[Rfam]
RNA sequence: GAGGAAUGAGGAAAACCAUCUCAACAGUCUGACUGUCACUGAAGACUGAUAAGAUCCAACUCUGACCUCAAAAGCC
Numbered sequence: 001g002a003g004g005a006a007u008g009a010g011g012a013a014a015a016c017c018a019u020c021u022c023a024a025c026a027g028u029c030u031g032a033c034u035g036u037c038a039c040u041g042a043a044g045a046c047u048g049a050u051a052a053g054a055u056c057c058a059a060c061u062c063u064g065a066c067c068u069c070a071a072a073a074g075c076c
Stems, first nucleotide, its partner, number of pairs: 001069004
RNA: Small nucleolar RNA SNORD19
Organism: Chrysochloris asiatica